[Rfam]
RNA sequence: CCCGCACCUGGACGGAAAGACCCCAUGAACCUUCACUGUAUUUUGACAUUGGUUUUAGGGCUGGCAUGUGUAGGAUAGGUGGGAGGCUACGAGCCGGCGACGCCAGUCGUCGGGGAGCCGUCCUUGAAAUACCACCCUUGCCCGUUUUGAGAUCUAACCUCGUCCCGUCAUCCGGGACAGGGACCGUGUCUGAUGGUCAGUUUGACUGGGGCGGUCGCCUCCCAAAAGGUAACGGAGGCAUCCAAAGGUUCCCUCAGCGCGGUCGGCAAUCGCGCGCAGAGCACAAAGGCAUAAGGGAGCUUGACUGCGAGACGGACACGUCGAGCAGGUACGAAAGUAGGGCUUAGUGAUCCCGCGGUACAGCGUGGAAAGGCCGUUGCUCAAUGGAUAAAAGGUACUCUGGGGAUAACAGGCUGAUCUCCCCCAAGCGUUCAUAGCGACGGGGAGGUUUGGCACCUCGAUGUCGGCUCGUCGCAUCCUGGGGCUGGAGAAGGUCCCAAGGGUUUGGCUGUUCGCCAAUUAAAGCGGCACGCGAGCUGGGUUCAAAACGUCGUGAGACAGUUUGGUCCCUAUCCGGUGUGGGCGUU
Numbered sequence: 001c002c003c004g005c006a007c008c009u010g011g012a013c014g015g016a017a018a019g020a021c022c023c024c025a026u027g028a029a030c031c032u033u034c035a036c037u038g039u040a041u042u043u044u045g046a047c048a049u050u051g052g053u054u055u056u057a058g059g060g061c062u063g064g065c066a067u068g069u070g071u072a073g074g075a076u077a078g079g080u081g082g083g084a085g086g087c088u089a090c091g092a093g094c095c096g097g098c099g100a101c102g103c104c105a106g107u108c109g110u111c112g113g114g115g116a117g118c119c120g121u122c123c124u125u126g127a128a129a130u131a132c133c134a135c136c137c138u139u140g141c142c143c144g145u146u147u148u149g150a151g152a153u154c155u156a157a158c159c160u161c162g163u164c165c166c167g168u169c170a171u172c173c174g175g176g177a178c179a180g181g182g183a184c185c186g187u188g189u190c191u192g193a194u195g196g197u198c199a200g201u202u203u204g205a206c207u208g209g210g211g212c213g214g215u216c217g218c219c220u221c222c223c224a225a226a227a228g229g230u231a232a233c234g235g236a237g238g239c240a241u242c243c244a245a246a247g248g249u250u251c252c253c254u255c256a257g258c259g260c261g262g263u264c265g266g267c268a269a270u271c272g273c274g275c276g277c278a279g280a281g282c283a284c285a286a287a288g289g290c291a292u293a294a295g296g297g298a299g300c301u302u303g304a305c306u307g308c309g310a311g312a313c314g315g316a317c318a319c320g321u322c323g324a325g326c327a328g329g330u331a332c333g334a335a336a337g338u339a340g341g342g343c344u345u346a347g348u349g350a351u352c353c354c355g356c357g358g359u360a361c362a363g364c365g366u367g368g369a370a371a372g373g374c375c376g377u378u379g380c381u382c383a384a385u386g387g388a389u390a391a392a393a394g395g396u397a398c399u400c401u402g403g404g405g406a407u408a409a410c411a412g413g414c415u416g417a418u419c420u421c422c423c424c425c426a427a428g429c430g431u432u433c434a435u436a437g438c439g440a441c442g443g444g445g446a447g448g449u450u451u452g453g454c455a456c457c458u459c460g461a462u463g464u465c466g467g468c469u470c471g472u473c474g475c476a477u478c479c480u481g482g483g484g485c486u487g488g489a490g491a492a493g494g495u496c497c498c499a500a501g502g503g504u505u506u507g508g509c510u511g512u513u514c515g516c517c518a519a520u521u522a523a524a525g526c527g528g529c530a531c532g533c534g535a536g537c538u539g540g541g542u543u544c545a546a547a548a549c550g551u552c553g554u555g556a557g558a559c560a561g562u563u564u565g566g567u568c569c570c571u572a573u574c575c576g577g578u579g580u581g582g583g584c585g586u587u
Stems, first nucleotide, its partner, number of pairs: 001583008010575003014570002022404004027400002029396005035201004042193002045190004051154011063142004068137001078136005085119003094113008158181003162178006204216004217239006240385001242342002248300006254280002257275006281290002305328004311322003330339003353379001355377005361372001413454003417451001418448007428438002465540001466538004470532001471529005478503002481498006505519005546564004550559003

A member of the RNA family "Bacterial large subunit ribosomal RNA" from Fibrobacter succinogenes, 587 nucleotides of a longer RNA. Its Rfam clan is "LSU clan".